[Rfam]
Rfam assigns this 61-nucleotide sequence from Pristionchus pacificus to the family "mir-8364 microRNA precursor family". The family's consensus secondary structure was predicted with RNAalifold. A search with the family's covariance model found it, with a score of 74 bits.
RNA sequence: UCUUCAUUUCACGUGCUCUCUCACCGGAUAGAGUAACGAGAGAGUGUGCGAAAUGGAGAGA
Numbered sequence: 001u002c003u004u005c006a007u008u009u010c011a012c013g014u015g016c017u018c019u020c021u022c023a024c025c026g027g028a029u030a031g032a033g034u035a036a037c038g039a040g041a042g043a044g045u046g047u048g049c050g051a052a053a054u055g056g057a058g059a060g061a
Base pairs, nucleotide, nucleotide: 001059002058003057004056005055006054007053010050012048013047014046015045016044017043019041020040021039022038
Rfam links the family to the GO terms miRNA-mediated post-transcriptional gene silencing and RISC complex.